[Rfam]
tRNA: a 73-nucleotide RNA. The base pairs follow the family's consensus structure, which is taken from published work. The family's RNA type in Rfam is transfer RNA. The sequence is in the family's curated seed alignment.
RNA sequence: UAGGCAGAAGCCAAUUGGUGUUGGCAUUUAGCUGUUAACUAAAAUUGUAUGGGAUCGAAGCCCAUCUGUCUAG
Number, nucleotide and partner (000 for none) at each position: 001u072002a071003g070004g069005c068006a067007g066008a000009a000010g025011c024012c023013a022014a000015u000016u000017g000018g000019u000020g000021u000022u013023g012024g011025c010026a000027u043028u042029u041030a040031g039032c000033u000034g000035u000036u000037a000038a000039c031040u030041a029042a028043a027044a000045u000046u000047g000048u000049a065050u064051g063052g062053g061054a000055u000056c000057g000058a000059a000060g000061c053062c052063c051064a050065u049066c007067u006068g005069u004070c003071u002072a001073g000